[Rfam]
RNA sequence: UGCCCGUGAUGACUCGCCAUGCUAAUACCGACCGGCCCUGCCGGCCAGGGCGAGGGGCCCGGCACGUCUGGCGGUGCCGGGAUGAGUUGAAACCUCUUCUCGGGAAGAGCUGAAGGCGC
Number, nucleotide and partner (000 for none) at each position: 001u118002g117003c116004c115005c000006g000007u000008g000009a000010u000011g000012a000013c000014u000015c000016g000017c000018c000019a000020u000021g000022c000023u000024a000025a000026u000027a000028c000029c000030g000031a000032c000033c000034g000035g000036c000037c000038c000039u000040g000041c080042c079043g078044g077045c076046c000047a000048g000049g000050g000051c000052g000053a000054g000055g000056g000057g000058c000059c000060c000061g000062g000063c000064a000065c000066g000067u000068c000069u000070g000071g000072c000073g000074g000075u000076g045077c044078c043079g042080g041081g000082a000083u000084g000085a000086g000087u000088u000089g000090a000091a000092a000093c000094c000095u000096c000097u000098u000099c000100u000101c000102g000103g000104g000105a000106a000107g000108a000109g000110c000111u000112g000113a000114a000115g004116g003117c002118g001119c000
This 119-nucleotide RNA sequence from Apteryx australis belongs to the Rfam family "Small nucleolar RNA U6-53/MBII-28".
The literature on the family includes a 2001 paper in EMBO J by Huttenhofer et al., "RNomics: an experimental approach that identifies 201 candidates for novel, small, non-messenger RNAs in mouse".
A search with the family's covariance model found it, with a score of 36 bits.
The family's RNA type in Rfam is C/D-box small nucleolar RNA.
Pairs were carried over by alignment from the consensus structure.
NCBI's taxonomy places the organism under Eukaryota, Eumetazoa, Sauria, Archelosauria, Apteryx.